[Rfam]
The family of this 106-nucleotide sequence from Terrisporobacter othiniensis is "PyrR binding site". It scores 56 bits against the family's covariance model. The source organism's lineage runs through Bacteria, Bacillati, Clostridia, Peptostreptococcales and Terrisporobacter. The family's RNA type in Rfam is cis-regulatory element.

RNA sequence: UGAUACUUUAAAAUAGUCCCGAGAGGCUAAAAAGAAUAGUUACAUAUUUUAUUGAUUUUAGUGUGUAGGCAUCCUUUUAUCUUUUUUGGGUAAAGGGAUUUUUUAU
Numbered sequence: 001u002g003a004u005a006c007u008u009u010a011a012a013a014u015a016g017u018c019c020c021g022a023g024a025g026g027c028u029a030a031a032a033a034g035a036a037u038a039g040u041u042a043c044a045u046a047u048u049u050u051a052u053u054g055a056u057u058u059u060a061g062u063g064u065g066u067a068g069g070c071a072u073c074c075u076u077u078u079a080u081c082u083u084u085u086u087u088g089g090g091u092a093a094a095g096g097g098a099u100u101u102u103u104u105a106u
Stems, first nucleotide, its partner, number of pairs: 003037002006034004014029005042066007069101001071099012